[Rfam]
Annotation
This 80-nucleotide RNA sequence from Mionectes macconnelli belongs to the Rfam family "Small nucleolar RNA SNORD87". The organism belongs to Mionectes, within Eukaryota. Pairs were carried over by alignment from the consensus structure. It is annotated as a C/D-box small nucleolar RNA. The literature on the family includes a 2002 paper in Gene by Gogolevskaya et al., "U87 RNA, a novel C/D box small nucleolar RNA from mammalian cells". The match comes from Rfam's covariance-model search (52 bits). Gene Ontology terms of the family: RNA processing and nucleolus.
RNA sequence: GCUGGCAUCAUGAUGAGAACCUUUGCCGUUUACCCAUCUGAAGGGUUUUUGAUGUGAAUCUUUGAAUCUGAAAUGCCAGC
Numbered sequence: 001g002c003u004g005g006c007a008u009c010a011u012g013a014u015g016a017g018a019a020c021c022u023u024u025g026c027c028g029u030u031u032a033c034c035c036a037u038c039u040g041a042a043g044g045g046u047u048u049u050u051g052a053u054g055u056g057a058a059u060c061u062u063u064g065a066a067u068c069u070g071a072a073a074u075g076c077c078a079g080c
Base pairs, nucleotide, nucleotide: 001080002079003078004077005076006075007074